[Rfam]
RNA sequence: CUCGCUAUAUGACGAUGGCAAUCUCAAAUGUUCAUUGGUUGCCAUUUGAUGAAAUCAGUUUUGUGUG
Numbered sequence: 001c002u003c004g005c006u007a008u009a010u011g012a013c014g015a016u017g018g019c020a021a022u023c024u025c026a027a028a029u030g031u032u033c034a035u036u037g038g039u040u041g042c043c044a045u046u047u048g049a050u051g052a053a054a055u056c057a058g059u060u061u062u063g064u065g066u067g
Base pairs, nucleotide, nucleotide: 001067003065004064005063014046015045016044017043018042019041020040021039022038023037028035029034
RNA: Selenocysteine insertion sequence 1